[Rfam]
RNA sequence: UGCUCCCUGUGGUGUUCGCUCACUGGCCAAGUCCCUGAGCCGAUGUUUCACCUAUUGGGGGCUCCCUAUAGGCGCGGGAGUGCAUGUCCGCUUUGCGGAAAGCCCGAUGCGCCUAGGAAGCCUCCCCCCUUGAACCCUGGGUUCAAGGGGCUUACGCCAGCAACGGCAUCGCGGGGAGCAU
Numbered sequence: 001u002g003c004u005c006c007c008u009g010u011g012g013u014g015u016u017c018g019c020u021c022a023c024u025g026g027c028c029a030a031g032u033c034c035c036u037g038a039g040c041c042g043a044u045g046u047u048u049c050a051c052c053u054a055u056u057g058g059g060g061g062c063u064c065c066c067u068a069u070a071g072g073c074g075c076g077g078g079a080g081u082g083c084a085u086g087u088c089c090g091c092u093u094u095g096c097g098g099a100a101a102g103c104c105c106g107a108u109g110c111g112c113c114u115a116g117g118a119a120g121c122c123u124c125c126c127c128c129c130u131u132g133a134a135c136c137c138u139g140g141g142u143u144c145a146a147g148g149g150g151c152u153u154a155c156g157c158c159a160g161c162a163a164c165g166g167c168a169u170c171g172c173g174g175g176g177a178g179c180a181u
Base pairs, nucleotide, nucleotide: 002179003178004177005176006175007174008173009172010171011170012169013168014167015166017165018164031151032150033149034147036145037144038143039142040141041140057126058125059124061121062120063119065117066116070114071113072112073111074110075109076108082103083102087099088098089097090096091095
Dot-bracket structure: .((((((((((((((.((............((((.((((((...............(((.(((.((...(((((((.....((...(((((...)))))..))....))))))).)).)))..))).............)))))).).)))............))))))))))))))))..